[Rfam]
RNA sequence: AACUAUAACAGUCGAUGAUGAAAGGCUUUUGAUACACAACUCGUCCUUAUAGUUAUCCUCGCAUAGCUGGGUUUAUUCUUGGCUUUGCCUGGGUCGUUGAGGAUUGCACUGUGGCCACUUCACCACCUUAAUAGCGGUGCUUAACUCAAUACCGAGGCUG
Numbered sequence: 001a002a003c004u005a006u007a008a009c010a011g012u013c014g015a016u017g018a019u020g021a022a023a024g025g026c027u028u029u030u031g032a033u034a035c036a037c038a039a040c041u042c043g044u045c046c047u048u049a050u051a052g053u054u055a056u057c058c059u060c061g062c063a064u065a066g067c068u069g070g071g072u073u074u075a076u077u078c079u080u081g082g083c084u085u086u087g088c089c090u091g092g093g094u095c096g097u098u099g100a101g102g103a104u105u106g107c108a109c110u111g112u113g114g115c116c117a118c119u120u121c122a123c124c125a126c127c128u129u130a131a132u133a134g135c136g137g138u139g140c141u142u143a144a145c146u147c148a149a150u151a152c153c154g155a156g157g158c159u160g
Stems, first nucleotide, its partner, number of pairs: 009160005016122003020118001024116004029106001031104001033102001037099004055094004061088003065084007124139004
The record is a 160-nucleotide sequence from Lachancea dasiensis, which matches "Small nucleolar RNA snR4" in Rfam. Taxonomically the source falls in Lachancea (Eukaryota, Opisthokonta, Saccharomycotina, Saccharomycetaceae).